[Rfam]
RNA: Nitrogen stress-induced RNA 1
Organism: Cuspidothrix issatschenkoi
RNA sequence: CAGUAGAUGCACCCUGAUAACUAACUUCCCCUGGCUGGCUAACACCACUGGGGGUUUUUUCC
Numbered sequence: 001c002a003g004u005a006g007a008u009g010c011a012c013c014c015u016g017a018u019a020a021c022u023a024a025c026u027u028c029c030c031c032u033g034g035c036u037g038g039c040u041a042a043c044a045c046c047a048c049u050g051g052g053g054g055u056u057u058u059u060u061c062c
Base pairs, nucleotide, nucleotide: 003012004011028054029053030052031051032050033049034048036047037046038045